[Rfam]
RNA: Small nucleolar RNA SNORD90
RNA sequence: GUUUCAGACUUGUGUGUCUAAUGAUGAAGCUUCAUAGGGCAGAUUCUGAGCUGAGAAAUCAUUUUUCUCCAGUGAUACUCUCUCUAUGCCAUCUGAAGACACUAUGUACUGU
Numbered sequence: 001g002u003u004u005c006a007g008a009c010u011u012g013u014g015u016g017u018c019u020a021a022u023g024a025u026g027a028a029g030c031u032u033c034a035u036a037g038g039g040c041a042g043a044u045u046c047u048g049a050g051c052u053g054a055g056a057a058a059u060c061a062u063u064u065u066u067c068u069c070c071a072g073u074g075a076u077a078c079u080c081u082c083u084c085u086a087u088g089c090c091a092u093c094u095g096a097a098g099a100c101a102c103u104a105u106g107u108a109c110u111g112u
Stems, first nucleotide, its partner, number of pairs: 014102006029092001033088003037081003042076001045075002050070001053069005